[Rfam]
RNA sequence: GGCGCUAAAUGCCGAUUGGAAUAGACGUCUUGGACUGGGGGGCGGUACCCCACUUCUCCACCAUCAUGGGGAAGAAAUAGGCUCGACAGGCGUAAUAAAGGAUCUGCGUGCGCUCGGGAUUUAUUCACCCGGCGGCAACGCGAACGGAUAGCAAAAAACGAAUGCUAAUGACAAUCGUUCUGUGCAACCUUACGCUCUCGCAGCCUAA
Numbered sequence: 001g002g003c004g005c006u007a008a009a010u011g012c013c014g015a016u017u018g019g020a021a022u023a024g025a026c027g028u029c030u031u032g033g034a035c036u037g038g039g040g041g042g043c044g045g046u047a048c049c050c051c052a053c054u055u056c057u058c059c060a061c062c063a064u065c066a067u068g069g070g071g072a073a074g075a076a077a078u079a080g081g082c083u084c085g086a087c088a089g090g091c092g093u094a095a096u097a098a099a100g101g102a103u104c105u106g107c108g109u110g111c112g113c114u115c116g117g118g119a120u121u122u123a124u125u126c127a128c129c130c131g132g133c134g135g136c137a138a139c140g141c142g143a144a145c146g147g148a149u150a151g152c153a154a155a156a157a158a159c160g161a162a163u164g165c166u167a168a169u170g171a172c173a174a175u176c177g178u179u180c181u182g183u184g185c186a187a188c189c190u191u192a193c194g195c196u197c198u199c200g201c202a203g204c205c206u207a208a
Base pairs, nucleotide, nucleotide: 001114002113003112004111005110014104015103016102017101026092027091028090030089031088032087036052037051038050039049040048053074054073055072056071057070058069059068115131116130117129118128
This 208-nucleotide RNA sequence from an Alphaproteobacteria bacterium belongs to the Rfam family "permuted transfer-messenger RNA". It is annotated as a non-coding RNA gene. The sequence is in the family's curated seed alignment. The source organism's lineage runs through Bacteria, Pseudomonadati, Pseudomonadota and Alphaproteobacteria.